[Rfam]
RNA sequence: CAGUGGAGUAGAAGCUGUCAGUUGUGAAGCCUCAGGGCAUGCGCAACAGGUCAUUGCUCCGGCA
Number, nucleotide and partner (000 for none) at each position: 001c000002a000003g000004u000005g060006g059007a058008g057009u056010a055011g000012a000013a000014g000015c049016u000017g000018u000019c050020a000021g047022u046023u045024g044025u043026g042027a000028a000029g000030c000031c000032u000033c000034a000035g000036g000037g000038c000039a000040u000041g000042c026043g025044c024045a023046a022047c021048a000049g015050g019051u000052c000053a000054u000055u010056g009057c008058u007059c006060c005061g000062g000063c000064a000